Background
The record is a 52-nucleotide RNA from Falsihalocynthiibacter arcticus, which matches "ffh sRNA" in Rfam. Taxonomically the source falls in Falsihalocynthiibacter (Bacteria, Pseudomonadati, Alphaproteobacteria, Roseobacteraceae). By type it is a small RNA. A search with the family's covariance model found it, with a score of 64 bits. A reference for the family is Meyer et al. (2009), "Identification of candidate structured RNAs in the marine organism 'Candidatus Pelagibacter ubique'", BMC Genomics. The family's consensus secondary structure is taken from published work.
RNA sequence: UUUAGUAGGGAUCGCCAUCCGUCAGCGCGUUGCGCCCACGGGUGUCGUUGUG
Numbered sequence: 001u002u003u004a005g006u007a008g009g010g011a012u013c014g015c016c017a018u019c020c021g022u023c024a025g026c027g028c029g030u031u032g033c034g035c036c037c038a039c040g041g042g043u044g045u046c047g048u049u050g051u052g
Stems, first nucleotide, its partner, number of pairs: 016044007025035004